[Rfam]
RNA sequence: GAUCGAGAAGUUCGACGCUAAGCCCCUCGGCUAGUCGACUAGCAACCGCGUUUCGUGCACGGUGCUCCCGAAGGAAGAUCGGCCCCCGAGCAAAAGCUCGGGAGGAAGUAUGCGAU
Numbered sequence: 001g002a003u004c005g006a007g008a009a010g011u012u013c014g015a016c017g018c019u020a021a022g023c024c025c026c027u028c029g030g031c032u033a034g035u036c037g038a039c040u041a042g043c044a045a046c047c048g049c050g051u052u053u054c055g056u057g058c059a060c061g062g063u064g065c066u067c068c069c070g071a072a073g074g075a076a077g078a079u080c081g082g083c084c085c086c087c088g089a090g091c092a093a094a095a096g097c098u099c100g101g102g103a104g105g106a107a108g109u110a111u112g113c114g115a116u
Stems, first nucleotide, its partner, number of pairs: 001080004009040001012038005021032002041066003046062003050058002083105002085102007
The family of this 116-nucleotide sequence from Flaviflexus ciconiae is "SAM (S-adenosyl methionine) riboswitch aptamer". The base pairs follow the family's consensus structure, which is taken from published work. Rfam 15.1 lists 2,360 matches to the family in 1,305 species. Rfam's curators write: SAM-IV is a mRNA element that regulates gene expression via direct sensing of S-adenosylmethionine (SAM or AdoMet). SAM-IV riboswitches share conserved nucleotide positions with the previously described SAM-I riboswitches sequence analysis and molecular recognition experiments suggest that SAM-I and SAM-IV riboswitches share similar ligand binding sites, but have different scaffolds. Taxonomically the source falls in Flaviflexus (Bacteria, Bacillati, Actinomycetes, Actinomycetales).